Rfam assigns this 92-nucleotide sequence from Prunus avium to the family "MIR6288 microRNA precursor family". The family's consensus secondary structure was predicted with RNAalifold. Rfam links the family to the GO terms miRNA-mediated post-transcriptional gene silencing and RISC complex. A search with the family's covariance model found it, with a score of 78 bits.
[Rfam]
RNA sequence: UCAUAAUUAGUCCCUUGUCAUUUUUUAAUUGGUUCUUAGUGUAUUAUAAUUUCUUAAGAAUCAUUUAAAAAAUGACAAGGGGUUAGUUGAGG
Numbered sequence: 001u002c003a004u005a006a007u008u009a010g011u012c013c014c015u016u017g018u019c020a021u022u023u024u025u026u027a028a029u030u031g032g033u034u035c036u037u038a039g040u041g042u043a044u045u046a047u048a049a050u051u052u053c054u055u056a057a058g059a060a061u062c063a064u065u066u067a068a069a070a071a072a073u074g075a076c077a078a079g080g081g082g083u084u085a086g087u088u089g090a091g092g
Stems, first nucleotide, its partner, number of pairs: 002091001004089025030063010